RNA sequence: GCCAAAUGAUGUUUAUUUUGAUGCAGGAGCACUUUUGUGCCAGGACGACUCUAAUCUAUCACCCAUGACUGAUGGCU
Numbered sequence: 001g002c003c004a005a006a007u008g009a010u011g012u013u014u015a016u017u018u019u020g021a022u023g024c025a026g027g028a029g030c031a032c033u034u035u036u037g038u039g040c041c042a043g044g045a046c047g048a049c050u051c052u053a054a055u056c057u058a059u060c061a062c063c064c065a066u067g068a069c070u071g072a073u074g075g076c077u
Stems, first nucleotide, its partner, number of pairs: 001076004029040004
The record is a 77-nucleotide sequence from Erinaceus europaeus, which matches "Small nucleolar RNA SNORD83" in Rfam. For this family Rfam cites "Characterisation of the U83 and U84 small nucleolar RNAs: two novel 2'-O-ribose methylation guide RNAs that lack complementarities to ribosomal RNAs" (Jady and Kiss, Nucleic Acids Res, 2000). By type it is a C/D-box small nucleolar RNA. Its family is annotated with RNA processing and nucleolus in the Gene Ontology.